Rfam assigns this 83-nucleotide sequence from Dromaius novaehollandiae to the family "Small nucleolar RNA MBII-202". Lineage of the source: Eukaryota > Sarcopterygii > Dipnotetrapodomorpha > Tetrapoda > Dromaius.
RNA sequence: CGGUGACGCUUUCUCCGGAAUCUGUGUAGUCCGUGACGACUGCGCUUGAACCCUUUUCUGGCUGAUGGCCGAAGUGGCUCCCU
Numbered sequence: 001c002g003g004u005g006a007c008g009c010u011u012u013c014u015c016c017g018g019a020a021u022c023u024g025u026g027u028a029g030u031c032c033g034u035g036a037c038g039a040c041u042g043c044g045c046u047u048g049a050a051c052c053c054u055u056u057u058c059u060g061g062c063u064g065a066u067g068g069c070c071g072a073a074g075u076g077g078c079u080c081c082c083u
Base pairs, nucleotide, nucleotide: 002083003082005080006079
Gene Ontology terms of the family: nucleolus and RNA processing.
The family has 30 seed sequences and 745 matches in Rfam 15.1.
The family's RNA type in Rfam is C/D-box small nucleolar RNA.